[Rfam]
RNA sequence: UAGGCUGACAGUAAGCUUCCUGAUGCUCAGGCAGCACAUGAGAAGACUAUCACUGGGCUACUGCCAGCCUUAGCGGGAGCCAAUCUUAUAUACGGCCUGG
Numbered sequence: 001u002a003g004g005c006u007g008a009c010a011g012u013a014a015g016c017u018u019c020c021u022g023a024u025g026c027u028c029a030g031g032c033a034g035c036a037c038a039u040g041a042g043a044a045g046a047c048u049a050u051c052a053c054u055g056g057g058c059u060a061c062u063g064c065c066a067g068c069c070u071u072a073g074c075g076g077g078a079g080c081c082a083a084u085c086u087u088a089u090a091u092a093c094g095g096c097c098u099g100g
Stems, first nucleotide, its partner, number of pairs: 003012001025032001033062002077098001079096002

Description:
The family of this 100-nucleotide sequence from Syntrophaceticus schinkii is "Pyrrolysine insertion sequence mttB". Gene Ontology term of the family: pyrrolysine incorporation. Lineage of the source: Bacteria > Bacillati > Bacillota > Clostridia > Syntrophaceticus.